Shown here is a 262-nucleotide RNA from Sporobacter termitidis, a member of the family "FuFi-1 RNA".
RNA sequence: UGCGCAGGGCGGUCAUCGCAGAAUCCAAACUGCGAAAGUGACGCGGAACGCCAAGAAGCGUGCAGUGGUUUUGCGGGCGAUGCCGGUAGAAAAGAAUCUACAUACCGGAACAGACCGGACUAAAAAAGGCGUAGGUUAACUAUCAAGUGCCGUGUUCGUAUCACGUAAAAAAGACGUAGCGUUGGUAGUGCUGGCAUCUGCAGCGUUCUUUGGGUAAAUAAAUUGGAAGCGGGCCGUCUGUGAAACCACCACAGGCGGUUUU
Numbered sequence: 001u002g003c004g005c006a007g008g009g010c011g012g013u014c015a016u017c018g019c020a021g022a023a024u025c026c027a028a029a030c031u032g033c034g035a036a037a038g039u040g041a042c043g044c045g046g047a048a049c050g051c052c053a054a055g056a057a058g059c060g061u062g063c064a065g066u067g068g069u070u071u072u073g074c075g076g077g078c079g080a081u082g083c084c085g086g087u088a089g090a091a092a093a094g095a096a097u098c099u100a101c102a103u104a105c106c107g108g109a110a111c112a113g114a115c116c117g118g119a120c121u122a123a124a125a126a127a128g129g130c131g132u133a134g135g136u137u138a139a140c141u142a143u144c145a146a147g148u149g150c151c152g153u154g155u156u157c158g159u160a161u162c163a164c165g166u167a168a169a170a171a172a173g174a175c176g177u178a179g180c181g182u183u184g185g186u187a188g189u190g191c192u193g194g195c196a197u198c199u200g201c202a203g204c205g206u207u208c209u210u211u212g213g214g215u216a217a218a219u220a221a222a223u224u225g226g227a228a229g230c231g232g233g234c235c236g237u238c239u240g241u242g243a244a245a246c247c248a249c250c251a252c253a254g255g256c257g258g259u260u261u262u
Stems, first nucleotide, its partner, number of pairs: 017034005024226002027223001046208006058078002061075004065249007079198010231261012